The family of this 71-nucleotide RNA sequence from Castor canadensis is "Small nucleolar RNA SNORD113/SNORD114 family".
A reference for the family is Cavaille et al. (2002), "Identification of tandemly-repeated C/D snoRNA genes at the imprinted human 14q32 domain reminiscent of those at the Prader-Willi/Angelman syndrome region", Hum Mol Genet.
The family has 59 seed sequences and 5,721 matches in Rfam 15.1.
The match comes from Rfam's covariance-model search (39 bits).
Its family is annotated with nucleolus and RNA processing in the Gene Ontology.
About the family: The imprinted human domain at 14q32 contains two clusters of tandemly repeated small nucleolar RNAs named 14q(I) and 14q(II) snoRNAs. These two clusters are named SNORD113 and SNORD114 respectively in the HGNC approved gene symbol nomenclature. The snoRNAs found in both clusters are clearly related and are represented here by a single family.
By type it is a C/D-box small nucleolar RNA.
NCBI's taxonomy places the organism under Eukaryota, Eumetazoa, Bilateria, Amniota, Castor.
Its Rfam clan is "SNORD74 clan".

[Rfam]
RNA sequence: GGGACCAGUGAUGACUGGAGGCAAGUAAGUCAGACAGGAUGAGCACAAGGAGUCACGAUUCUGAGGUCUAA
Numbered sequence: 001g002g003g004a005c006c007a008g009u010g011a012u013g014a015c016u017g018g019a020g021g022c023a024a025g026u027a028a029g030u031c032a033g034a035c036a037g038g039a040u041g042a043g044c045a046c047a048a049g050g051a052g053u054c055a056c057g058a059u060u061c062u063g064a065g066g067u068c069u070a071a
Base pairs, nucleotide, nucleotide: 002069003068004067005066006065